[Rfam]
RNA: RNase MRP
RNA sequence: UCCUCGCUCAAAGAAUCGCAUUCAAAGCUCACACACAGAGAGAUAUCUUUAUGAUUCUCUCUUCCUCCAGCUUUGGGAGAAAGUCCCCGGACAUCCUGACUGUUUAAACGUCCUCUUGCAGGGCCCAGUCAGGCAAUGCGGAAACGCGCCGCCAUAGAAGCAAUUCGAUAGCGGCUUAUACGCCCUAUUCCCCUCCCAGUGUUGUCUCUGUACCCGAACACAAGCUUUGACCGGCUUGUGGGUAACAAUGGUUGGUGCAGGGCAGUGCUGGAGAGGGGGUUUUAUCUGGGUUGCCUUUCGUCGUGUUUGGAUAGUCAUGCGAUUGCCCUCUUAUAUAUUUCUUCGAACAGACCUCCAUUCGGCUGAAAAGUUGGGGAGGAUUCAUCGGGAAAUCAAGGGGGUAACUCAAUGGGGCUCAUUCUUGAGGCGAGG
Numbered sequence: 001u002c003c004u005c006g007c008u009c010a011a012a013g014a015a016u017c018g019c020a021u022u023c024a025a026a027g028c029u030c031a032c033a034c035a036c037a038g039a040g041a042g043a044u045a046u047c048u049u050u051a052u053g054a055u056u057c058u059c060u061c062u063u064c065c066u067c068c069a070g071c072u073u074u075g076g077g078a079g080a081a082a083g084u085c086c087c088c089g090g091a092c093a094u095c096c097u098g099a100c101u102g103u104u105u106a107a108a109c110g111u112c113c114u115c116u117u118g119c120a121g122g123g124c125c126c127a128g129u130c131a132g133g134c135a136a137u138g139c140g141g142a143a144a145c146g147c148g149c150c151g152c153c154a155u156a157g158a159a160g161c162a163a164u165u166c167g168a169u170a171g172c173g174g175c176u177u178a179u180a181c182g183c184c185c186u187a188u189u190c191c192c193c194u195c196c197c198a199g200u201g202u203u204g205u206c207u208c209u210g211u212a213c214c215c216g217a218a219c220a221c222a223a224g225c226u227u228u229g230a231c232c233g234g235c236u237u238g239u240g241g242g243u244a245a246c247a248a249u250g251g252u253u254g255g256u257g258c259a260g261g262g263c264a265g266u267g268c269u270g271g272a273g274a275g276g277g278g279g280u281u282u283u284a285u286c287u288g289g290g291u292u293g294c295c296u297u298u299c300g301u302c303g304u305g306u307u308u309g310g311a312u313a314g315u316c317a318u319g320c321g322a323u324u325g326c327c328c329u330c331u332u333a334u335a336u337a338u339u340u341c342u343u344c345g346a347a348c349a350g351a352c353c354u355c356c357a358u359u360c361g362g363c364u365g366a367a368a369a370g371u372u373g374g375g376g377a378g379g380a381u382u383c384a385u386c387g388g389g390a391a392a393u394c395a396a397g398g399g400g401g402u403a404a405c406u407c408a409a410u411g412g413g414g415c416u417c418a419u420u421c422u423u424g425a426g427g428c429g430a431g432g
Stems, first nucleotide, its partner, number of pairs: 002432006008425004014324006022077001023075006038061006082416002085414004171186001173184003190293001195290005212280004326401006